The record is a 48-nucleotide RNA sequence, which matches "gut-2 RNA" in Rfam.
Rfam classes the family as a small RNA.
[Rfam]
RNA sequence: UACCGCCGGCGAAUUGGCGUCGGCGAAGGACCAAACGGGGUCAACAGC
Number, nucleotide and partner (000 for none) at each position: 001u000002a000003c000004c025005g024006c023007c022008g021009g020010c019011g018012a000013a000014u000015u000016g000017g000018c011019g010020u009021c008022g007023g006024c005025g004026a000027a000028g000029g042030a041031c040032c039033a000034a000035a000036c000037g000038g000039g032040g031041u030042c029043a000044a000045c000046a000047g000048c000